[Rfam]
RNA sequence: GCGGAUGGCUGGAUGACCGCGGGUGACUGUUGGGGCGUGCCCCUUCGUGACGCGAGGAAAGUCCGGACUCCACAAGGCAACGGUGCCGGGUAACGCCCGGCCGGGGAAACCCGAGGGAAAGCGCCACAGAGAACAGACAGCCUGCGCAUGCGCGGGUUAUGGUGAAACGGUGGGGUAAGAGCCCACCGCGCUUCUGGCAACAGCGGCGGCACGGCAAGCCCCACCGGGAGCAAUGCCUAAUAGGGAUCGCGCGGGGGUAACCCCAGGGGUGUCUUGCCCCGAGCAGAUCCGGGUUGGCAGCUUGAACCUGUUGGUAACAGCAGGUCUAGAGGAAUGGUCAUCCAUGGUGGCAACACCGGGACAGAAUCCGGCUUACAGGCCAUCCGCGCGU
Numbered sequence: 001g002c003g004g005a006u007g008g009c010u011g012g013a014u015g016a017c018c019g020c021g022g023g024u025g026a027c028u029g030u031u032g033g034g035g036c037g038u039g040c041c042c043c044u045u046c047g048u049g050a051c052g053c054g055a056g057g058a059a060a061g062u063c064c065g066g067a068c069u070c071c072a073c074a075a076g077g078c079a080a081c082g083g084u085g086c087c088g089g090g091u092a093a094c095g096c097c098c099g100g101c102c103g104g105g106g107a108a109a110c111c112c113g114a115g116g117g118a119a120a121g122c123g124c125c126a127c128a129g130a131g132a133a134c135a136g137a138c139a140g141c142c143u144g145c146g147c148a149u150g151c152g153c154g155g156g157u158u159a160u161g162g163u164g165a166a167a168c169g170g171u172g173g174g175g176u177a178a179g180a181g182c183c184c185a186c187c188g189c190g191c192u193u194c195u196g197g198c199a200a201c202a203g204c205g206g207c208g209g210c211a212c213g214g215c216a217a218g219c220c221c222c223a224c225c226g227g228g229a230g231c232a233a234u235g236c237c238u239a240a241u242a243g244g245g246a247u248c249g250c251g252c253g254g255g256g257g258u259a260a261c262c263c264c265a266g267g268g269g270u271g272u273c274u275u276g277c278c279c280c281g282a283g284c285a286g287a288u289c290c291g292g293g294u295u296g297g298c299a300g301c302u303u304g305a306a307c308c309u310g311u312u313g314g315u316a317a318c319a320g321c322a323g324g325u326c327u328a329g330a331g332g333a334a335u336g337g338u339c340a341u342c343c344a345u346g347g348u349g350g351c352a353a354c355a356c357c358g359g360g361a362c363a364g365a366a367u368c369c370g371g372c373u374u375a376c377a378g379g380c381c382a383u384c385c386g387c388g389c390g391u
Stems, first nucleotide, its partner, number of pairs: 001387010011376001012342007020054002023051002026048002059374003063371005068230004076275002079272001081226005086100005101115001102113004116221002121219002123215003138161002140157007169187006188210001189208004194203003234299004244290005266280005306325008

The family of this 391-nucleotide RNA sequence from Aliiroseovarius pelagivivens is "Bacterial RNase P class A". The family's RNA type in Rfam is ribozyme. It scores 307 bits against the family's covariance model. The base pairs follow the family's consensus structure, which is taken from published work.